Background:
Shown here is a 129-nucleotide RNA sequence from Erinaceus europaeus, a member of the family "Small nucleolar RNA SNORA33". From the family's description: ACA33 is a member of the H/ACA class of snoRNA that guide the sites of modification of uridines to pseudouridines. NCBI's taxonomy places the organism under Eukaryota, Metazoa, Teleostomi, Mammalia, Erinaceus. Gene Ontology terms of the family: RNA processing and nucleolus. Rfam classes the family as an H/ACA-box small nucleolar RNA.

RNA sequence: AAGCCAGCCAAUGAAUCUGCUUACUUGAUUGUGUUCCUGCAGAAAUUUUUUAUAACUGGCAAUAGCAAUGCCAUGUUACGACCCUUAAUGACAUUGGGGUCAUUGAGGUCUCUGAAAGUGGCUAUAGGA
Numbered sequence: 001a002a003g004c005c006a007g008c009c010a011a012u013g014a015a016u017c018u019g020c021u022u023a024c025u026u027g028a029u030u031g032u033g034u035u036c037c038u039g040c041a042g043a044a045a046u047u048u049u050u051u052a053u054a055a056c057u058g059g060c061a062a063u064a065g066c067a068a069u070g071c072c073a074u075g076u077u078a079c080g081a082c083c084c085u086u087a088a089u090g091a092c093a094u095u096g097g098g099g100u101c102a103u104u105g106a107g108g109u110c111u112c113u114g115a116a117a118g119u120g121g122c123u124a125u126a127g128g129a
Stems, first nucleotide, its partner, number of pairs: 003060005016043005070122004083108006090101003